[Rfam]
RNA: PreQ1 (pre queuosine) riboswitch aptamer
RNA sequence: AACCGCGUGGUUCGAGAACCUCCCACGAUAAAAAACUAAGGAGAG
Numbered sequence: 001a002a003c004c005g006c007g008u009g010g011u012u013c014g015a016g017a018a019c020c021u022c023c024c025a026c027g028a029u030a031a032a033a034a035a036c037u038a039a040g041g042a043g044a045g
Stems, first nucleotide, its partner, number of pairs: 006027005016037001